[Rfam]
RNA sequence: GACUUUGCGUCAACAGCCUGAGCGUCUCGUUUAAGGCUGAUGGCUGGUGGCUUUUGCCACCGGCCU
Dot-bracket structure: .............(((((...((.....))....)))))..((((((((((....)))))))))).
RNA: Pseudomonas sRNA P26
Organism: Pseudomonas pohangensis